[Rfam]
A member of the RNA family "Small nucleolar RNA SNORA65" from Cochlearius cochlearius, 126 nucleotides long.
NCBI's taxonomy places the organism under Eukaryota, Amniota, Neognathae, Pelecaniformes, Cochlearius.
Rfam 15.1 lists 1,089 matches to the family in 619 species.
Clan: SNORA65 clan.
Rfam classes the family as an H/ACA-box small nucleolar RNA.
From the family's description: U65 belongs to the H/ACA class of snoRNAs which are thought to guide the sites of modification of uridines to pseudouridines.
The match comes from Rfam's covariance-model search (78 bits).
Rfam links the family to the GO terms nucleolus and RNA processing.
The base pairs follow the family's consensus structure, which was predicted with RNAalifold.

RNA sequence: CCCGCCACUGCGCCUGUCUUGUGCCUGGGCUGGCGCAGUCCAGAGGUGAGCUGGCAGAAGACGCCAGCAUAGGAAACGGAGUUGCUCUCCCUGUGGGUAGCUUUGUGCCCAAGUUUGGGAACAGGC
Numbered sequence: 001c002c003c004g005c006c007a008c009u010g011c012g013c014c015u016g017u018c019u020u021g022u023g024c025c026u027g028g029g030c031u032g033g034c035g036c037a038g039u040c041c042a043g044a045g046g047u048g049a050g051c052u053g054g055c056a057g058a059a060g061a062c063g064c065c066a067g068c069a070u071a072g073g074a075a076a077c078g079g080a081g082u083u084g085c086u087c088u089c090c091c092u093g094u095g096g097g098u099a100g101c102u103u104u105g106u107g108c109c110c111a112a113g114u115u116u117g118g119g120a121a122c123a124g125g126c
Stems, first nucleotide, its partner, number of pairs: 005046002008043003018033002021030001022028001062119001064117001066116001067114002070112001072109002077105006085097003